[Rfam]
RNA sequence: AGCAGAGUAGAAGCCAGUGCGUUAAGUGCCGCCCGGACGGGGAGUUGCCGGGUGGACGAAAAGGGUUCCUUGCGGUAUUGGCUUCGCAUCCCGCUGCU
Numbered sequence: 001a002g003c004a005g006a007g008u009a010g011a012a013g014c015c016a017g018u019g020c021g022u023u024a025a026g027u028g029c030c031g032c033c034c035g036g037a038c039g040g041g042g043a044g045u046u047g048c049c050g051g052g053u054g055g056a057c058g059a060a061a062a063g064g065g066u067u068c069c070u071u072g073c074g075g076u077a078u079u080g081g082c083u084u085c086g087c088a089u090c091c092c093g094c095u096g097c098u
Base pairs, nucleotide, nucleotide: 001098002097003096004095005094010085011084012083013082014081015080016079017078018077019076020074021073022072026057027056029055030054031053032052033051034050035049036048040091041090042089044087061071062070063069064068
Rfam assigns this 98-nucleotide sequence from Anaerotruncus sp. AF02-27 to the family "THF (Tetrahydrofolate) riboswitch aptamer". About the family: Tetrahydrofolate (THF) riboswitch was first reported for Ames et al. as an RNA motif in 5' untranslated (5'-UTR)regions of folate transport and biosynthesis genes in Firmicutes genomes. Pairs were carried over by alignment from the consensus structure, which is taken from published work. NCBI's taxonomy places the organism under Bacteria, Bacillati, Clostridia, Oscillospiraceae, Anaerotruncus.